[Rfam]
RNA: Fluoride riboswitch aptamer (crcB RNA motif)
RNA sequence: AAAAUGCGCGGCUAUGACAUUAGCCUUGAAAUAAAAAAUUUCUAAACCGCAUCGCUUGAUGCUGAUAAUGUCUACCUAAUG
Numbered sequence: 001a002a003a004a005u006g007c008g009c010g011g012c013u014a015u016g017a018c019a020u021u022a023g024c025c026u027u028g029a030a031a032u033a034a035a036a037a038a039u040u041u042c043u044a045a046a047c048c049g050c051a052u053c054g055c056u057u058g059a060u061g062c063u064g065a066u067a068a069u070g071u072c073u074a075c076c077u078a079a080u081g
Stems, first nucleotide, its partner, number of pairs: 010025004016072006049062004
Dot-bracket structure: .........[[[[..((((((]]]].......................((((......))))....)))))).........